[Rfam]
RNA sequence: UUAUGUAGUUCCUUAUUAUUCUGUUUUUAUCGCAUUCAUGGAGAGUCAG
Number, nucleotide and partner (000 for none) at each position: 001u000002u000003a000004u000005g000006u048007a000008g046009u045010u044011c043012c000013u000014u000015a000016u000017u000018a000019u000020u000021c000022u000023g000024u000025u000026u000027u000028u000029a000030u000031c000032g000033c000034a000035u000036u000037c000038a000039u000040g000041g000042a000043g011044a010045g009046u008047c000048a006049g000
The family of this 49-nucleotide RNA sequence from Apostasia shenzhenica is "Plastid-rpoB 5UTR RNA". Rfam describes the family as follows. Plastid rpoB is a non-coding RNA (ncRNA) recognised in plastids. It was found in the 5 prime untranslated region (5UTR) of a chloroplast-encoded RNA polymerase subunit (rpoB) in plastids, suggesting a posible cis-regulatory function. The family's consensus secondary structure was predicted with LocARNA. The family has 49 seed sequences and 102 matches in Rfam 15.1. It scores 45 bits against the family's covariance model. By type it is a cis-regulatory element.